[Rfam]
RNA sequence: GGUCGCAUGAUGUAGUCGGUUAUCAUGUCGAUCUAAUAAGUCGAAUGUCGCCGGUUCGAACCCGGCUGUGACCA
Number, nucleotide and partner (000 for none) at each position: 001g073002g072003u071004c070005g069006c068007a067008u000009g000010a026011u025012g024013u000014a000015g000016u000017c000018g000019g000020u000021u000022a000023u000024c012025a011026u010027g000028u044029c043030g042031a041032u040033c000034u000035a000036a000037u000038a000039a000040g032041u031042c030043g029044a028045a000046u000047g000048u000049c000050g066051c065052c064053g063054g062055u000056u000057c000058g000059a000060a000061c000062c054063c053064g052065g051066c050067u007068g006069u005070g004071a003072c002073c001074a000
The family of this 74-nucleotide RNA sequence from Schizosaccharomyces pombe is "tRNA". It is annotated as a transfer RNA.